The record is a 403-nucleotide sequence from Microlunatus sagamiharensis, which matches "Bacterial RNase P class A" in Rfam. Ribonuclease P (RNase P) is a ubiquitous endoribonuclease, found in archaea, bacteria and eukarya as well as chloroplasts and mitochondria. The family's RNA type in Rfam is ribozyme.

[Rfam]
RNA sequence: CGAGUCGGUCAGGCGGCCGCGGCGUACGCCCUCGGGCACGCGUCGAGGAAAGUCCGGACUCCUCAGAGCACGGUGGUGGGUAACGCCCACCCGGGGUGACCCGCGGGACAGUGCCACAGAAAGCAGACCGCCCGUCGGCCUCGGCCGGCGGGUAAGGGUGAAACGGUGGUGCAAGAGACCACCAGCACCCCUGGUGACAGGGGUGGCUCGGCAAACCCCACCGGGAGCAAGACCAAGAAGGCGCCCUCCUGCGAAGGAGGACGCCGCGGGAGCGUUCGAGGGCUGCUCGCCCGAGCUCCCGGGUAGGUCGCACCAGGCCGCUGGCAACAGCGGUCGCAGAUGGAUGGCCGCCCCCUCCGCCUCGGCGGAGGGACAGAAUCCGGCUUACCGACCGGCUCGUCCC
Numbered sequence: 001c002g003a004g005u006c007g008g009u010c011a012g013g014c015g016g017c018c019g020c021g022g023c024g025u026a027c028g029c030c031c032u033c034g035g036g037c038a039c040g041c042g043u044c045g046a047g048g049a050a051a052g053u054c055c056g057g058a059c060u061c062c063u064c065a066g067a068g069c070a071c072g073g074u075g076g077u078g079g080g081u082a083a084c085g086c087c088c089a090c091c092c093g094g095g096g097u098g099a100c101c102c103g104c105g106g107g108a109c110a111g112u113g114c115c116a117c118a119g120a121a122a123g124c125a126g127a128c129c130g131c132c133c134g135u136c137g138g139c140c141u142c143g144g145c146c147g148g149c150g151g152g153u154a155a156g157g158g159u160g161a162a163a164c165g166g167u168g169g170u171g172c173a174a175g176a177g178a179c180c181a182c183c184a185g186c187a188c189c190c191c192u193g194g195u196g197a198c199a200g201g202g203g204u205g206g207c208u209c210g211g212c213a214a215a216c217c218c219c220a221c222c223g224g225g226a227g228c229a230a231g232a233c234c235a236a237g238a239a240g241g242c243g244c245c246c247u248c249c250u251g252c253g254a255a256g257g258a259g260g261a262c263g264c265c266g267c268g269g270g271a272g273c274g275u276u277c278g279a280g281g282g283c284u285g286c287u288c289g290c291c292c293g294a295g296c297u298c299c300c301g302g303g304u305a306g307g308u309c310g311c312a313c314c315a316g317g318c319c320g321c322u323g324g325c326a327a328c329a330g331c332g333g334u335c336g337c338a339g340a341u342g343g344a345u346g347g348c349c350g351c352c353c354c355c356u357c358c359g360c361c362u363c364g365g366c367g368g369a370g371g372g373a374c375a376g377a378a379u380c381c382g383g384c385u386u387a388c389c390g391a392c393c394g395g396c397u398c399g400u401c402c403c
Stems, first nucleotide, its partner, number of pairs: 001399010012352007020045006028037001050386003054383005059227004066288004071223005076090005091105001092103004106218002111216002113212003128157002130153009165183006185207001186205008231309004268300006280292004316335008
Description:
The family's consensus secondary structure is taken from published work. Rfam links the family to the GO terms ribonuclease P activity, dimeric ribonuclease P complex and tRNA processing.